This 77-nucleotide sequence from Salarias fasciatus belongs to the Rfam family "mir-92 microRNA precursor family". Its family is annotated with miRNA-mediated post-transcriptional gene silencing and RISC complex in the Gene Ontology. Rfam 15.1 lists 1,347 matches to the family in 653 species. Pairs were carried over by alignment from the consensus structure, which was predicted with PFOLD. Clan: mir-92 microRNA precursor clan. From the family's description: This family represents the microRNA precursor mir-92. For this family Rfam cites "Embryonic stem cell-specific MicroRNAs" (Houbaviy et al., Dev Cell, 2003). The source organism's lineage runs through Eukaryota, Neopterygii, Ovalentaria, Blennioidei and Salarias.
[Rfam]
RNA sequence: AUUCCUGUACAGGUGGGGACUGGUAGCAAUGCUGUGUAUCUGAAGGUAUUGCACUUGUCCCGGCCUGUGUAGGAAAG
Numbered sequence: 001a002u003u004c005c006u007g008u009a010c011a012g013g014u015g016g017g018g019a020c021u022g023g024u025a026g027c028a029a030u031g032c033u034g035u036g037u038a039u040c041u042g043a044a045g046g047u048a049u050u051g052c053a054c055u056u057g058u059c060c061c062g063g064c065c066u067g068u069g070u071a072g073g074a075a076a077g
Stems, first nucleotide, its partner, number of pairs: 004073003009068006016061005022055003026052008